[Rfam]
RNA: epsC RNA
RNA sequence: CGGUAAUGUCUCCUCACCGUUACUAAUGGAGGCACUCGAUCAUGCUGUGGGUAAAAGUAGUCCUACCUUAGAUGCAAGUCGUCAGUGGCAUGGUGUGAGGUUGGGUUAGAUGCCUG
Numbered sequence: 001c002g003g004u005a006a007u008g009u010c011u012c013c014u015c016a017c018c019g020u021u022a023c024u025a026a027u028g029g030a031g032g033c034a035c036u037c038g039a040u041c042a043u044g045c046u047g048u049g050g051g052u053a054a055a056a057g058u059a060g061u062c063c064u065a066c067c068u069u070a071g072a073u074g075c076a077a078g079u080c081g082u083c084a085g086u087g088g089c090a091u092g093g094u095g096u097g098a099g100g101u102u103g104g105g106u107u108a109g110a111u112g113c114c115u116g
Stems, first nucleotide, its partner, number of pairs: 001019004007034007035099004039094008049068005056061001071083004102116005